The family of this 130-nucleotide RNA from Mastacembelus armatus is "Small nucleolar RNA SNORA27". Rfam's curators write: ACA27 is a member of the H/ACA class of snoRNA that guide the sites of modification of uridines to pseudouridines. Rfam links the family to the GO terms RNA processing and nucleolus. Its Rfam clan is "SNORA27 clan". NCBI's taxonomy places the organism under Eukaryota, Opisthokonta, Craniata, Anabantaria, Mastacembelus. By type it is an H/ACA-box small nucleolar RNA. Pairs were carried over by alignment from the consensus structure.
RNA sequence: CACCCCAUCUUCACUUUGCCACCAGAAUUCCAUAUUUCCUUGGUGGUCAUUCAUAUGGGGGAAAUUAUUUAAUCCUUAUACACCUCAGUCAAACUCCUGUUUGAUUUUGAGUUGUAUUGAGGAGACAGUA
Numbered sequence: 001c002a003c004c005c006c007a008u009c010u011u012c013a014c015u016u017u018g019c020c021a022c023c024a025g026a027a028u029u030c031c032a033u034a035u036u037u038c039c040u041u042g043g044u045g046g047u048c049a050u051u052c053a054u055a056u057g058g059g060g061g062a063a064a065u066u067a068u069u070u071a072a073u074c075c076u077u078a079u080a081c082a083c084c085u086c087a088g089u090c091a092a093a094c095u096c097c098u099g100u101u102u103g104a105u106u107u108u109g110a111g112u113u114g115u116a117u118u119g120a121g122g123a124g125a126c127a128g129u130a
Base pairs, nucleotide, nucleotide: 035062036061037060038059039058043054044053045052046051073123074122075121076120077119078118087106088105089104090103091102092101093100094099
Dot-bracket structure: ..................................(((((...((((....))))...)))))..........((((((........((((((((....))))))))...........)))))).......